[Rfam]
RNA sequence: UCCUAGCCCAGAUAGGAACGGUAUCCUUUUUAUUUUUCUUUAAAAAAUAAAAAGAUAAAGUGGAUAGCUGGAAAUAGC
Numbered sequence: 001u002c003c004u005a006g007c008c009c010a011g012a013u014a015g016g017a018a019c020g021g022u023a024u025c026c027u028u029u030u031u032a033u034u035u036u037u038c039u040u041u042a043a044a045a046a047a048u049a050a051a052a053a054g055a056u057a058a059a060g061u062g063g064a065u066a067g068c069u070g071g072a073a074a075u076a077g078c
Stems, first nucleotide, its partner, number of pairs: 009070003013066002018061002023056003029051005034044003
Shown here is a 78-nucleotide sequence, a member of the family "Flavo-1 RNA". Rfam's curators put it in the seed alignment. By type it is a small RNA.